[Rfam]
This 168-nucleotide RNA from Cajanus cajan belongs to the Rfam family "small nucleolar RNA snoR143".
RNA sequence: ACGCACUUUGUAUUGUUGUGGGUCUCUCUGAUUAUGUGGAGCGGACUUUGAACAAUGGUGCGGAAAGUGAGAGCUGUUUAGUCAGCAGGCAGCCAGACAACUGCCGAGGUGGAUCCACAGAUGAACGGAUUUUUAAUGCUGUUUGUCUACUAAUUCCACCUUACAUUU
Numbered sequence: 001a002c003g004c005a006c007u008u009u010g011u012a013u014u015g016u017u018g019u020g021g022g023u024c025u026c027u028c029u030g031a032u033u034a035u036g037u038g039g040a041g042c043g044g045a046c047u048u049u050g051a052a053c054a055a056u057g058g059u060g061c062g063g064a065a066a067g068u069g070a071g072a073g074c075u076g077u078u079u080a081g082u083c084a085g086c087a088g089g090c091a092g093c094c095a096g097a098c099a100a101c102u103g104c105c106g107a108g109g110u111g112g113a114u115c116c117a118c119a120g121a122u123g124a125a126c127g128g129a130u131u132u133u134u135a136a137u138g139c140u141g142u143u144u145g146u147c148u149a150c151u152a153a154u155u156c157c158a159c160c161u162u163a164c165a166u167u168u
Stems, first nucleotide, its partner, number of pairs: 002062005009054003013051003018046002023044002026041004106162008124144002126141003
Rfam 15.1 lists 660 matches to the family in 212 species. Gene Ontology terms of the family: nucleolus and RNA processing. The family's consensus secondary structure was predicted with RNAalifold. Rfam classes the family as an H/ACA-box small nucleolar RNA. A reference for the family is Chen and Wu (2009), "Mining small RNA sequencing data: a new approach to identify small nucleolar RNAs in Arabidopsis", Nucleic Acids Res.